Flavo-1 RNA: an 83-nucleotide sequence from Flavobacterium psychrophilum. Lineage of the source: Bacteria > Pseudomonadati > Flavobacteriia > Flavobacteriaceae > Flavobacterium psychrophilum. By type it is a small RNA.
RNA sequence: GUUUUGCGUUAGGGAUUGUAGUGGAAAUCCUUUUGUUUUUUCCUUUAAAAAACAAAAGAUUGCAACGGAAAGCCCGCUCGAAC
Numbered sequence: 001g002u003u004u005u006g007c008g009u010u011a012g013g014g015a016u017u018g019u020a021g022u023g024g025a026a027a028u029c030c031u032u033u034u035g036u037u038u039u040u041u042c043c044u045u046u047a048a049a050a051a052a053c054a055a056a057a058g059a060u061u062g063c064a065a066c067g068g069a070a071a072g073c074c075c076g077c078u079c080g081a082a083c
Stems, first nucleotide, its partner, number of pairs: 012075003016071002021066002026061004032056010